[Rfam]
RNA sequence: CAGCACUUGAUACUAACCGAGCUAUCUGUAUCCUCGUCUUGUUUAAAGGCUUGUGAUAUGCUGUGGUAGUUGGGUUGCAGAAGUGCGAUAUUAAAGUAAAAGCCAUGAGUCUUUUAGGCCCAGUGUGUAAAGACACAUUCUGAGUUAUAACUCAGAGGCACAUUU
Number, nucleotide and partner (000 for none) at each position: 001c000002a000003g086004c085005a084006c083007u082008u081009g000010a000011u000012a000013c000014u000015a076016a075017c074018c073019g000020a071021g070022c069023u068024a067025u066026c065027u060028g059029u058030a057031u056032c055033c053034u000035c000036g050037u049038c048039u047040u046041g000042u000043u000044u000045a000046a040047a039048g038049g037050c036051u000052u000053g033054u000055g032056a031057u030058a029059u028060g027061c000062u000063g000064u000065g026066g025067u024068a023069g022070u021071u020072g000073g018074g017075u016076u015077g000078c000079a000080g000081a008082a007083g006084u005085g004086c003087g000088a000089u000090a000091u000092u000093a000094a000095a000096g000097u000098a000099a000100a000101a000102g159103c158104c157105a000106u000107g000108a000109g000110u000111c000112u000113u000114u000115u000116a000117g000118g000119c000120c000121c000122a000123g138124u137125g136126u135127g134128u133129a000130a000131a000132g000133a128134c127135a126136c125137a124138u123139u156140c155141u154142g153143a152144g151145u150146u000147a000148u000149a000150a145151c144152u143153c142154a141155g140156a139157g104158g103159c102160a000161c000162a000163u000164u000165u000